[Rfam]
RNA: Archaeal large subunit ribosomal RNA, nucleotides 2076 to 2657
Organism: methanogenic archaeon ISO4-H5
RNA sequence: AUUCCAUCUGAAAGCGAAGACCCCAUGGAGUUUCACUGCAACCUGUUGUUGUUGUAGGAGAUGGUAUGUGUAGGGUAGACGGGAGACGUUACCCAGGAAGGAGCGCUAGCUUCUCUCCGAGUCGACGAUGAAACACCGUCCUUACCAUUUCUUACGACUCACCCUUUCGAGGGGACAGCUAUAGGCGGGCAGUUCGGGUGGGGCGCCACGCCCUCAAAAAGAUAACAAGGGCGCCCAAAGGUUAGCUCAGUUAGGUCAGAAAUCUAACGAAGAAUGUAAAGGUAAAAGCUAGCUUGACUCGGAACCAGACAAUAGGGUUCGGAGAUAGGAAACUAUGGCUUAGCGAACCAAUCAGCCUCCCAAGUGGGGGCGAUUGAUGUCAGAAAAAUUACCCUGGGGAUAAUUGAGUUGUCACGGGCAAGAGUUCAUAUCGACCCCGUGGCUUGCUACUUCGCUGUCGGCUCUCCCUAUCCUGGUGGUGCAGCAGCUGCCAAGGGUGGGGUUGUUCGCCCAUUAAAAGGGAUCGUGAGCUGGGUUUAAAACGUCGCGAGACAGUUUUGUUGCUUUUUGAUGGAAUUGUUA
Number, nucleotide and partner (000 for none) at each position: 001a577002u576003u575004c574005c573006a572007u571008c570009u000010g569011a568012a567013a000014g564015c563016g000017a000018a000019g000020a000021c000022c398023c397024c396025a395026u000027g394028g393029a390030g389031u388032u387033u386034c000035a193036c192037u191038g190039c000040a000041a000042c185043c184044u183045g182046u181047u000048g179049u000050u000051g158052u157053u156054g155055u154056a153057g152058g151059a150060g149061a148062u147063g146064g145065u144066a143067u000068g141069u000070g000071u000072a000073g000074g000075g000076u000077a000078g140079a139080c138081g137082g136083g000084a000085g123086a122087c121088g000089u000090u000091a000092c000093c000094c000095a000096g000097g000098a000099a000100g113101g112102a111103g110104c109105g000106c000107u000108a000109g104110c103111u102112u101113c100114u000115c000116u000117c000118c000119g000120a000121g087122u086123c085124g000125a000126c000127g000128a000129u000130g000131a000132a000133a000134c000135a000136c082137c081138g080139u079140c078141c068142u000143u066144a065145c064146c063147a062148u061149u060150u059151c058152u057153u056154a055155c054156g053157a052158c051159u000160c000161a000162c173163c172164c171165u170166u000167u000168c000169g000170a165171g164172g163173g162174g000175a000176c000177a000178g000179c048180u000181a046182u045183a044184g043185g042186c000187g000188g000189g000190c038191a037192g036193u035194u000195c000196g209197g207198g206199u205200g000201g000202g000203g000204c000205g199206c198207c197208a000209c196210g232211c231212c230213c229214u228215c000216a000217a000218a000219a000220a000221g000222a000223u000224a000225a000226c000227a000228a214229g213230g212231g211232c210233g000234c000235c338236c337237a000238a000239a000240g000241g293242u292243u291244a290245g289246c288247u273248c272249a000250g268251u267252u266253a265254g264255g263256u000257c000258a000259g000260a000261a000262a000263u255264c254265u253266a252267a251268c250269g000270a000271a000272g248273a247274a283275u282276g000277u000278a000279a000280a000281g000282g275283u274284a000285a000286a000287a000288g246289c245290u244291a243292g242293c241294u000295u000296g000297a000298c324299u323300c322301g000302g320303a319304a318305c317306c316307a000308g000309a000310c000311a000312a000313u000314a000315g000316g306317g305318u304319u303320c302321g000322g300323a299324g298325a000326u335327a000328g333329g000330a000331a000332a000333c328334u000335a326336u000337g236338g235339c000340u000341u000342a000343g000344c000345g000346a000347a000348c000349c376350a375351a374352u373353c372354a000355g371356c370357c369358u368359c367360c000361c000362a000363a000364g000365u000366g000367g359368g358369g357370g356371c355372g353373a352374u351375u350376g349377a000378u000379g000380u000381c000382a000383g000384a000385a000386a033387a032388a031389u030390u029391a000392c000393c028394c027395u025396g024397g023398g022399g000400a000401u000402a000403a000404u000405u000406g000407a448408g447409u446410u000411g445412u442413c441414a440415c439416g438417g437418g436419c000420a000421a000422g432423a431424g000425u000426u000427c000428a000429u000430a000431u423432c422433g000434a000435c000436c418437c417438c416439g415440u414441g413442g412443c000444u000445u411446g409447c408448u407449a000450c000451u000452u000453c000454g000455c000456u000457g000458u000459c534460g532461g531462c530463u529464c526465u523466c522467c521468c520469u519470a000471u000472c497473c496474u000475g000476g491477u490478g489479g488480u487481g000482c000483a000484g000485c000486a000487g480488c479489u478490g477491c476492c000493a000494a000495g000496g473497g472498u000499g000500g512501g511502g510503u509504u000505g000506u000507u000508c000509g503510c502511c501512c500513a000514u000515u000516a000517a000518a000519a469520g468521g467522g466523a465524u000525c000526g464527u000528g000529a463530g462531c461532u460533g000534g459535g000536u000537u000538u000539a000540a558541a557542a556543c555544g553545u552546c551547g000548c000549g000550a000551g546552a545553c544554a000555g543556u542557u541558u540559u000560g000561u000562u000563g015564c014565u000566u000567u012568u011569u010570g008571a007572u006573g005574g004575a003576a002577u001578u000579g000580u000581u000582a000